[Rfam]
RNA sequence: CGCCCGGCCGGAUCCCGUGGGGGGAAUCCGCUCCGGGACAAGGGAAGCGCCCUGUACGUCGAC
Numbered sequence: 001c002g003c004c005c006g007g008c009c010g011g012a013u014c015c016c017g018u019g020g021g022g023g024g025a026a027u028c029c030g031c032u033c034c035g036g037g038a039c040a041a042g043g044g045a046a047g048c049g050c051c052c053u054g055u056a057c058g059u060c061g062a063c
Base pairs, nucleotide, nucleotide: 001061002060003037004036005035006034007033009030010029011028012027013026014024015023016022042052043051044050
Shown here is a 63-nucleotide sequence from Streptomyces finlayi, a member of the family "Streptomyces RNA 2736". It is annotated as a small RNA. For this family Rfam cites "Deep sequencing-based identification of small non-coding RNAs in Streptomyces coelicolor" (Vockenhuber et al., RNA Biol, 2011). The organism belongs to Streptomyces, within Bacteria. Rfam's curators write: Identified by deep sequencing of transcriptome at the end of exponential growth phase. Appears smaller on northern blot than sequencing transcript. This indicates processing step. Streptomyces specific.